[Rfam]
RNA sequence: GAGUUAGCCAUGAUUAUAAAAAUAAUUUCUCGAUCUGACUUGCUUAAUUUGGGCAUGACAAACCUUUUUAUUACACCUAUAGAAUAUGAACUAC
Numbered sequence: 001g002a003g004u005u006a007g008c009c010a011u012g013a014u015u016a017u018a019a020a021a022a023u024a025a026u027u028u029c030u031c032g033a034u035c036u037g038a039c040u041u042g043c044u045u046a047a048u049u050u051g052g053g054c055a056u057g058a059c060a061a062a063c064c065u066u067u068u069u070a071u072u073a074c075a076c077c078u079a080u081a082g083a084a085u086a087u088g089a090a091c092u093a094c
Stems, first nucleotide, its partner, number of pairs: 003094002006092002